[Rfam]
RNA sequence: AGAGCCGUCCAAGGCGGAGUGUGAUUCUCCGACCGGCGGUGAACGUUAACAGCGUAAGCCCGCAAGCCUCAUAAAUUUUGUUCAACGUGAGGUUGACCCGGUGUGAUUCCAGGGGCCGACGGUAAAGUCCGGAAGAAAGGAAGUGUAU
Numbered sequence: 001a002g003a004g005c006c007g008u009c010c011a012a013g014g015c016g017g018a019g020u021g022u023g024a025u026u027c028u029c030c031g032a033c034c035g036g037c038g039g040u041g042a043a044c045g046u047u048a049a050c051a052g053c054g055u056a057a058g059c060c061c062g063c064a065a066g067c068c069u070c071a072u073a074a075a076u077u078u079u080g081u082u083c084a085a086c087g088u089g090a091g092g093u094u095g096a097c098c099c100g101g102u103g104u105g106a107u108u109c110c111a112g113g114g115g116c117c118g119a120c121g122g123u124a125a126a127g128u129c130c131g132g133a134a135g136a137a138a139g140g141a142a143g144u145g146u147a148u
Stems, first nucleotide, its partner, number of pairs: 003146001006143001008141003017029003032128002034118002036063004058116002066093006097114003100110002120131003

This 148-nucleotide sequence from Ruminococcaceae bacterium YAD3003 belongs to the Rfam family "FMN riboswitch aptamer (RFN element)".
The organism belongs to Oscillospiraceae, within Bacteria.